[Rfam]
RNA sequence: UGGCGAGGACGACCUCGUCGGCGUUUCUCUCCCACGGGACGACCCGC
Numbered sequence: 001u002g003g004c005g006a007g008g009a010c011g012a013c014c015u016c017g018u019c020g021g022c023g024u025u026u027c028u029c030u031c032c033c034a035c036g037g038g039a040c041g042a043c044c045c046g047c
Stems, first nucleotide, its partner, number of pairs: 001020008035046004
About this RNA: The family of this 47-nucleotide sequence from Hydrogenophaga sp. H7 is "Guanidine-II riboswitch aptamer (mini-ykkC)". The family's consensus secondary structure is taken from published work.